[Rfam]
RNA sequence: UUCUUAUGGGAUGAUGACUGUUAUUUUCAUGUUCUGAUUGGAUGUCAAUUCCAUAAAAUAUGAAAUAAAUUGUUGUUUUCAUUGAUCGAUAAGAACAUCACACGUGACCUUCAACAUUA
Numbered sequence: 001u002u003c004u005u006a007u008g009g010g011a012u013g014a015u016g017a018c019u020g021u022u023a024u025u026u027u028c029a030u031g032u033u034c035u036g037a038u039u040g041g042a043u044g045u046c047a048a049u050u051c052c053a054u055a056a057a058a059u060a061u062g063a064a065a066u067a068a069a070u071u072g073u074u075g076u077u078u079u080c081a082u083u084g085a086u087c088g089a090u091a092a093g094a095a096c097a098u099c100a101c102a103c104g105u106g107a108c109c110u111u112c113a114a115c116a117u118u119a
Stems, first nucleotide, its partner, number of pairs: 020108004025102001029098002032095004037090003
Dot-bracket structure: ...................((((.(...((.((((.(((................................................))).)))).))...)..))))...........
RNA: MIR1520 microRNA precursor family
Organism: Glycine max